[Rfam]
RNA sequence: UAUCAUUCCGACCGUUCAUUGGGGAGUAGCCUGCUCCGCCCGCCCCGCGGCGGAGCGUCCGCGUCAACAUGCUCGGCCAGGCGGCCGUGGCGCGGACGCCAUCACGGUUGGCGAGACCAACGGCCCUCCCGGCGGCGUCAUGGUU
Number, nucleotide and partner (000 for none) at each position: 001u000002a000003u000004c000005a000006u000007u000008c000009c000010g000011a000012c000013c000014g000015u000016u000017c000018a000019u000020u000021g000022g000023g000024g000025a000026g000027u000028a000029g000030c000031c000032u000033g056034c055035u054036c053037c052038g051039c050040c049041c000042g000043c000044c000045c000046c000047g000048c000049g040050g039051c038052g037053g036054a035055g034056c033057g097058u096059c095060c094061g093062c092063g091064u090065c089066a088067a000068c000069a000070u000071g000072c000073u000074c087075g086076g085077c084078c083079a000080g000081g000082c000083g078084g077085c076086c075087g074088u066089g065090g064091c063092g062093c061094g060095g059096a058097c057098g144099c143100c142101a141102u140103c000104a138105c000106g000107g000108u000109u000110g000111g000112c000113g000114a000115g000116a000117c000118c000119a000120a000121c000122g000123g000124c000125c000126c000127u000128c000129c000130c000131g000132g000133c000134g000135g000136c000137g000138u104139c000140a102141u101142g100143g099144u098145u000